RNA sequence: GUUGAAGUUUCAUCUACAAACGGAUAAAACUUUUGCCUUAGUGUAUAGGAAUUGUUGAAGCAAAUUAGCCAUACCCCAUAUAAUAUUAUAUGGGGUAUGGCUAAUUUAUU
Numbered sequence: 001g002u003u004g005a006a007g008u009u010u011c012a013u014c015u016a017c018a019a020a021c022g023g024a025u026a027a028a029a030c031u032u033u034u035g036c037c038u039u040a041g042u043g044u045a046u047a048g049g050a051a052u053u054g055u056u057g058a059a060g061c062a063a064a065u066u067a068g069c070c071a072u073a074c075c076c077c078a079u080a081u082a083a084u085a086u087u088a089u090a091u092g093g094g095g096u097a098u099g100g101c102u103a104a105u106u107u108a109u110u
Base pairs, nucleotide, nucleotide: 009024010023011022013020062107063106064105065104066103067102068101069100070099071098072097073096074095076093077092078091080089081088082087
RNA: Plastid-psbA-1 3UTR RNA
Organism: Anigozanthos flavidus